[Rfam]
A member of the RNA family "Small nucleolar RNA SNORD2" from Gasterosteus aculeatus, 73 nucleotides long. Rfam 15.1 lists 1,116 matches to the family in 660 species. For this family Rfam cites "Identification of a novel box C/D snoRNA from mouse nucleolar cDNA library" (Zhou et al., Gene, 2004). The family's consensus secondary structure was predicted with WAR. Lineage of the source: Eukaryota > Deuterostomia > Osteoglossocephalai > Euacanthomorphacea > Gasterosteus.

RNA sequence: GAGUGAAAUGAUGUCUACCAUCUUUCGGGACUUACCAAAUCAUGGUGAUAAUUUUUUUUCUUACUGAUCACUC
Numbered sequence: 001g002a003g004u005g006a007a008a009u010g011a012u013g014u015c016u017a018c019c020a021u022c023u024u025u026c027g028g029g030a031c032u033u034a035c036c037a038a039a040u041c042a043u044g045g046u047g048a049u050a051a052u053u054u055u056u057u058u059u060c061u062u063a064c065u066g067a068u069c070a071c072u073c
Stems, first nucleotide, its partner, number of pairs: 001073006